A member of the RNA family "glmS glucosamine-6-phosphate activated ribozyme aptamer" from Phascolarctobacterium succinatutens, 149 nucleotides long. Pairs were carried over by alignment from the consensus structure, which is taken from published work. Rfam classes the family as a riboswitch.

RNA sequence: UGAAGGAUGUAAGCGCAUGUACCGCUUAGGCGGUGGACGAGGAAUGAGGUUAUCGAUCAGUCAGCGGAUGCCUCACGGCCGGCUGCAGGCCGCAAACCGUGUACAAAGUCCUCCGGUAACGGGGGAGAGAAAAGCACGGUGGCAGAAAG
Numbered sequence: 001u002g003a004a005g006g007a008u009g010u011a012a013g014c015g016c017a018u019g020u021a022c023c024g025c026u027u028a029g030g031c032g033g034u035g036g037a038c039g040a041g042g043a044a045u046g047a048g049g050u051u052a053u054c055g056a057u058c059a060g061u062c063a064g065c066g067g068a069u070g071c072c073u074c075a076c077g078g079c080c081g082g083c084u085g086c087a088g089g090c091c092g093c094a095a096a097c098c099g100u101g102u103a104c105a106a107a108g109u110c111c112u113c114c115g116g117u118a119a120c121g122g123g124g125g126a127g128a129g130a131a132a133a134g135c136a137c138g139g140u141g142g143c144a145g146a147a148a149g
Base pairs, nucleotide, nucleotide: 020035021034022033023032024031025030045075046074047073048072049071053064055062056061076092077091078090079089080088096140097139098138099137100136101135109126110125111124112123113122114121115120